[Rfam]
RNA: MIR8024 microRNA precursor family
Organism: Solanum tuberosum
RNA sequence: UUGAAGACUUGAAAACUUUAACUUGCAGACUUGAAGAAUUUGAAGACUUCAACUUCCAGAAUUAAAGAAUUUGAAGACAUCAACU
Dot-bracket structure: ((((.(..(((((..(((((...((.(...((((((..........))))))..).))....)))))..)))))...).))))..